[Rfam]
The family of this 170-nucleotide RNA from Brevibacillus fluminis is "c-di-AMP riboswitch aptamer (ydaO/yuaA leader)". The source organism's lineage runs through Bacteria, Bacillota, Bacilli, Paenibacillaceae and Brevibacillus. The match comes from Rfam's covariance-model search (69 bits).
RNA sequence: AUGCUAUUUGGGCCGAAACCUCCAAGUAAGUAGGAGGUGCGGGGGACGCUUUACUACGGCCAAAAGCGCUAAGCGCUCGGCUGUUUGGGGUGAAUCGCUAGUAAAACGCGUAGGUUGAAUCCUUAAUCCGAACCCGACAACUAACCUCGUAGGAUCAUACAAAAGGAGCU
Numbered sequence: 001a002u003g004c005u006a007u008u009u010g011g012g013c014c015g016a017a018a019c020c021u022c023c024a025a026g027u028a029a030g031u032a033g034g035a036g037g038u039g040c041g042g043g044g045g046a047c048g049c050u051u052u053a054c055u056a057c058g059g060c061c062a063a064a065a066g067c068g069c070u071a072a073g074c075g076c077u078c079g080g081c082u083g084u085u086u087g088g089g090g091u092g093a094a095u096c097g098c099u100a101g102u103a104a105a106a107c108g109c110g111u112a113g114g115u116u117g118a119a120u121c122c123u124u125a126a127u128c129c130g131a132a133c134c135c136g137a138c139a140a141c142u143a144a145c146c147u148c149g150u151a152g153g154a155u156c157a158u159a160c161a162a163a164a165g166g167a168g169c170u
Stems, first nucleotide, its partner, number of pairs: 011155001013153002018038006039150006049087001088135003096110003113129002116126001